[Rfam]
RNA sequence: ACGGCCUGCUCGUGAUCGUCUUCUCACCCGUGUCACGCGGCAGGCACGGGAAGGCCCCGCGCGGUCGAUGCGCGCGGGGCCUUCCG
Number, nucleotide and partner (000 for none) at each position: 001a000002c000003g045004g000005c044006c043007u042008g041009c040010u039011c000012g036013u035014g034015a033016u000017c000018g028019u000020c000021u000022u000023c000024u000025c000026a000027c000028c018029c000030g000031u000032g000033u015034c014035a013036c012037g000038c000039g010040g009041c008042a007043g006044g005045c003046a000047c000048g000049g085050g084051a083052a082053g081054g080055c079056c078057c077058c076059g075060c074061g073062c072063g071064g000065u000066c000067g000068a000069u000070g000071c063072g062073c061074g060075c059076g058077g057078g056079g055080c054081c053082u052083u051084c050085c049086g000
This 86-nucleotide RNA from Streptomyces mobaraensis belongs to the Rfam family "sodF sRNA".